[Rfam]
Bacterial small subunit ribosomal RNA: a 590-nucleotide part of an RNA from an uncultured bacterium.
RNA sequence: UGACGGGGACCCGCACAAACGGUGGAGCAUGUGGUUUAAUACGACGAUACGCGUGGAACCUCACCCAGGCUUGACAUGUACUAGAAAGCCUUAUGAAAGUAGGGCCUUCCCUCAAGGACUGGUACACAGGUGUUGCAUGGCUGUCGUCAGCUCGUGUCGUGAGAUGUUGGGUUAAGUCCCGCAACGAGCGCAACCCCUAUCCUUAGUUGCCAGCACGAAAGGUGGGCACUCUAAGGAGACUGCUUACGAUAAGUAGGAGGAAGGUGGGGAUGACGUCAAGUCAGUACGGCCCUUACGCCUGGGGCUACACACGUGCUACAAUGGUCGGUACAAAGGGUCGCCAAACCGCGAGGUGGAGCUAAUCCCAAAAAACCGGCCCCAGUUCAGAUCGAAGGCUGCAACUCGCCUUCGUGAAGCUGGAAUCGUUAGUAACCCCGUAUCAGCCACGACGGGGUGAAUACGUUCCCGGGUCUUGUACACACCGCCCGUCAAGUGAUCCGAGCUGGGAGUACCCGAAGUAGUUUGGUUAACCCGCAAGGGAAGCCGGCUGCGAAGGUAAAACUAGUGAGGAGCACUAAGUCGUAACAAGG
Numbered sequence: 001u002g003a004c005g006g007g008g009a010c011c012c013g014c015a016c017a018a019a020c021g022g023u024g025g026a027g028c029a030u031g032u033g034g035u036u037u038a039a040u041a042c043g044a045c046g047a048u049a050c051g052c053g054u055g056g057a058a059c060c061u062c063a064c065c066c067a068g069g070c071u072u073g074a075c076a077u078g079u080a081c082u083a084g085a086a087a088g089c090c091u092u093a094u095g096a097a098a099g100u101a102g103g104g105c106c107u108u109c110c111c112u113c114a115a116g117g118a119c120u121g122g123u124a125c126a127c128a129g130g131u132g133u134u135g136c137a138u139g140g141c142u143g144u145c146g147u148c149a150g151c152u153c154g155u156g157u158c159g160u161g162a163g164a165u166g167u168u169g170g171g172u173u174a175a176g177u178c179c180c181g182c183a184a185c186g187a188g189c190g191c192a193a194c195c196c197c198u199a200u201c202c203u204u205a206g207u208u209g210c211c212a213g214c215a216c217g218a219a220a221g222g223u224g225g226g227c228a229c230u231c232u233a234a235g236g237a238g239a240c241u242g243c244u245u246a247c248g249a250u251a252a253g254u255a256g257g258a259g260g261a262a263g264g265u266g267g268g269g270a271u272g273a274c275g276u277c278a279a280g281u282c283a284g285u286a287c288g289g290c291c292c293u294u295a296c297g298c299c300u301g302g303g304g305c306u307a308c309a310c311a312c313g314u315g316c317u318a319c320a321a322u323g324g325u326c327g328g329u330a331c332a333a334a335g336g337g338u339c340g341c342c343a344a345a346c347c348g349c350g351a352g353g354u355g356g357a358g359c360u361a362a363u364c365c366c367a368a369a370a371a372a373c374c375g376g377c378c379c380c381a382g383u384u385c386a387g388a389u390c391g392a393a394g395g396c397u398g399c400a401a402c403u404c405g406c407c408u409u410c411g412u413g414a415a416g417c418u419g420g421a422a423u424c425g426u427u428a429g430u431a432a433c434c435c436c437g438u439a440u441c442a443g444c445c446a447c448g449a450c451g452g453g454g455u456g457a458a459u460a461c462g463u464u465c466c467c468g469g470g471u472c473u474u475g476u477a478c479a480c481a482c483c484g485c486c487c488g489u490c491a492a493g494u495g496a497u498c499c500g501a502g503c504u505g506g507g508a509g510u511a512c513c514c515g516a517a518g519u520a521g522u523u524u525g526g527u528u529a530a531c532c533c534g535c536a537a538g539g540g541a542a543g544c545c546g547g548c549u550g551c552g553a554a555g556g557u558a559a560a561a562c563u564a565g566u567g568a569g570g571a572g573c574a575c576u577a578a579g580u581c582g583u584a585a586c587a588a589g590g
Stems, first nucleotide, its partner, number of pairs: 001479002003476003007473007015463002019426005024319001026317008034308002040055004064303007077126002080123005088105007107118003129292002132290004138286002140281003143277001145275002150189006156165003168181004195269004200237007210226002214224003240260002243257005323378007335366003340359002345354003385416001390411007432455007482589001484586001487582002492576004497571003502566005510558004518551006525545004531540002
Dot-bracket structure: (((((.(((((((.((..((((((.((((((((((....((((........))))........(((((((......((.(((((...(((((((....))))))).(((......)))))))).))..((.((((..((((((.((...(((((((((....)))..((((......))))..)))))).....((((.(((((((...((..(((.....)))))....)))))))..((.(((((.....))))).)).....))))....)).).)))...))))))))....)))))))...)).)))))))).)...(((((((.....(((..((...(((....)))...))....))).....)))))))......(....(((((((........)))))))....).....))))).....(((((((..........)))))))......))...)))))))))).))..(.(..((...((((.(((..(((((...((((....((((((.((((..((......)).))))))))))...))))...)))))..))).))))....))...)..).